About this RNA: The record is a 105-nucleotide RNA from Hevea brasiliensis, which matches "Small nucleolar RNA snoR99" in Rfam. Its family is annotated with nucleolus and RNA processing in the Gene Ontology.

[Rfam]
Nucleotides: 105
Base pairs, nucleotide, nucleotide: 039099040098041097042096043095044094056085057084058083059082060081061080063078
Number, partner (000 for none) and nucleotide at each position: 001000g002000u003000g004000c005000u006000u007000c008000a009000g010000g011000a012000u013000g014000a015000a016000c017000a018000a019000g020000u021000c022000c023000c024000u025000g026000a027000u028000a029000u030000u031000u032000a033000a034000u035000u036000a037000a038000a039099u040098c041097c042096a043095u044094c045000u046000g047000u048000a049000u050000c051000a052000c053000u054000u055000u056085g057084u058083c059082a060081g061080c062000c063078g064000u065000a066000u067000u068000c069000u070000u071000u072000g073000g074000u075000u076000u077000c078063u079000u080061g081060c082059u083058g084057a085056u086000c087000a088000u089000u090000g091000a092000a093000g094044g095043g096042u097041g098040g099039a100000a101000u102000a103000u104000a105000u